[Rfam]
RNA: cspA thermoregulator
RNA sequence: CUUGGCCUGUAAAACAGACCCGAUUUAUGUACGACAUGAGAAUAAUGCUGUUACUCUUUUAAGACGUUAUCCUUGGUGAUUCCGCUUGUUCGAGAACCCUCUUCUUAGUGCCACCCAUAAGUUAGUUUCUGCAUUCGGCCUAACCCCCCGAUGGGGCAAUUUCAGUUAAAAUUUAAGGUAAUUCAAAUGUCUAAGAAGACUGGUCAGGUAAAGUGGUUUAACGAAAGCAAAGGCUUCGGCUUUAUCGAGCAGCAUGACGGCGGUAAAGAUGUAUUCGUACAUUUCUCUGCCAUCACCGGUGACGGUUUCAAAACGUUGGCCGAAGGCCAGCGUGUAGAGUACACCAUUCAGGACAGCCCGCGCGGGCCGGCUGCCGCCAACGUCGUCGCUCUGUAAUUGUGACGCGUGACAAUGCACUAUCGUUAGCACGGCGACAUGUUCGCUGGUGACGUGCGUUG
Numbered sequence: 001c002u003u004g005g006c007c008u009g010u011a012a013a014a015c016a017g018a019c020c021c022g023a024u025u026u027a028u029g030u031a032c033g034a035c036a037u038g039a040g041a042a043u044a045a046u047g048c049u050g051u052u053a054c055u056c057u058u059u060u061a062a063g064a065c066g067u068u069a070u071c072c073u074u075g076g077u078g079a080u081u082c083c084g085c086u087u088g089u090u091c092g093a094g095a096a097c098c099c100u101c102u103u104c105u106u107a108g109u110g111c112c113a114c115c116c117a118u119a120a121g122u123u124a125g126u127u128u129c130u131g132c133a134u135u136c137g138g139c140c141u142a143a144c145c146c147c148c149c150g151a152u153g154g155g156g157c158a159a160u161u162u163c164a165g166u167u168a169a170a171a172u173u174u175a176a177g178g179u180a181a182u183u184c185a186a187a188u189g190u191c192u193a194a195g196a197a198g199a200c201u202g203g204u205c206a207g208g209u210a211a212a213g214u215g216g217u218u219u220a221a222c223g224a225a226a227g228c229a230a231a232g233g234c235u236u237c238g239g240c241u242u243u244a245u246c247g248a249g250c251a252g253c254a255u256g257a258c259g260g261c262g263g264u265a266a267a268g269a270u271g272u273a274u275u276c277g278u279a280c281a282u283u284u285c286u287c288u289g290c291c292a293u294c295a296c297c298g299g300u301g302a303c304g305g306u307u308u309c310a311a312a313a314c315g316u317u318g319g320c321c322g323a324a325g326g327c328c329a330g331c332g333u334g335u336a337g338a339g340u341a342c343a344c345c346a347u348u349c350a351g352g353a354c355a356g357c358c359c360g361c362g363c364g365g366g367c368c369g370g371c372u373g374c375c376g377c378c379a380a381c382g383u384c385g386u387c388g389c390u391c392u393g394u395a396a397u398u399g400u401g402a403c404g405c406g407u408g409a410c411a412a413u414g415c416a417c418u419a420u421c422g423u424u425a426g427c428a429c430g431g432c433g434a435c436a437u438g439u440u441c442g443c444u445g446g447u448g449a450c451g452u453g454c455g456u457u458g
Base pairs, nucleotide, nucleotide: 004020005019007017008016009015032252035249037247038246047242050241052239054238056233057232058231059230066228067227068226071223075222077220078219079218082216083215087189088188089187090186092184100178101177102176103175108134109133110132111131147156148155149154191203192202193201256348257347259345260344268276269275281335282334284332287330288329289328290326291325294318295317297315301314354369356367358366359365370394371393373391375388376387378385398419399418404415405414406413407412426454427453428452429451430450432448433447435445436444